mir-172 microRNA precursor family: a 100-nucleotide sequence from Hibiscus trionum.
Taxonomically the source falls in Hibiscus (Eukaryota, Embryophyta, Mesangiospermae, Malvoideae).
The literature on the family includes a 2004 paper in Mol Cell by Jones-Rhoades and Bartel, "Computational Identification of Plant MicroRNAs and Their Targets, Including a Stress-Induced miRNA".
[Rfam]
RNA sequence: GUGUUUGCAGGUGAGGCAUCAUCAAGAUUCUCAAGGUUUAGCAGAGGCCUCUCUUUUUCUUGAGAAAUGAGAAUCUUGAUGAUGCUGCAUCAGCAAACGC
Number, nucleotide and partner (000 for none) at each position: 001g000002u000003g000004u000005u000006u000007g000008c000009a000010g091011g090012u089013g088014a000015g086016g085017c084018a083019u082020c081021a080022u079023c078024a077025a076026g075027a074028u073029u072030c071031u000032c069033a068034a000035g000036g000037u000038u000039u000040a000041g000042c000043a000044g000045a000046g000047g000048c000049c000050u000051c000052u000053c000054u000055u000056u000057u000058u000059c000060u000061u000062g000063a000064g000065a000066a000067a000068u033069g032070a000071g030072a029073a028074u027075c026076u025077u024078g023079a022080u021081g020082a019083u018084g017085c016086u015087g000088c013089a012090u011091c010092a000093g000094c000095a000096a000097a000098c000099g000100c000